[Rfam]
RNA: MIR390 microRNA precursor family
Organism: Brassica carinata
RNA sequence: UAGAAGAAUCUGUAAAGCUCAGGAGGGAUAAGCGCCAUCAUGAUCACUCACGUCGAUAUUUUGGCGCUGUCCAUCCUGAGUUUCAUUGGCUCUUCUU
Numbered sequence: 001u002a003g004a005a006g007a008a009u010c011u012g013u014a015a016a017g018c019u020c021a022g023g024a025g026g027g028a029u030a031a032g033c034g035c036c037a038u039c040a041u042g043a044u045c046a047c048u049c050a051c052g053u054c055g056a057u058a059u060u061u062u063g064g065c066g067c068u069g070u071c072c073a074u075c076c077u078g079a080g081u082u083u084c085a086u087u088g089g090c091u092c093u094u095c096u097u
Stems, first nucleotide, its partner, number of pairs: 010088001016082009026072004031068006